Background: BsrF: a 109-nucleotide RNA from Lederbergia lenta. A reference for the family is Saito et al. (2008), "Novel small RNA-encoding genes in the intergenic regions of Bacillus subtilis", Gene. The match comes from Rfam's covariance-model search (83 bits).

RNA sequence: GCGAUGAGCUGAUUUGCAUAAGUCGACUGACAUGCUUCAAUGCGCACAUGAUGUGAACAUGUGGUCUUUCGCCGCAAACGCAUAAGACGCCUGCAUAAUUGCAGGCGUC
Numbered sequence: 001g002c003g004a005u006g007a008g009c010u011g012a013u014u015u016g017c018a019u020a021a022g023u024c025g026a027c028u029g030a031c032a033u034g035c036u037u038c039a040a041u042g043c044g045c046a047c048a049u050g051a052u053g054u055g056a057a058c059a060u061g062u063g064g065u066c067u068u069u070c071g072c073c074g075c076a077a078a079c080g081c082a083u084a085a086g087a088c089g090c091c092u093g094c095a096u097a098a099u100u101g102c103a104g105g106c107g108u109c
Base pairs, nucleotide, nucleotide: 014077015076016075017074024071025070026069029066030065031064034043035042045063046062048060049059050058086109087108088107089106090105091104092103093102094101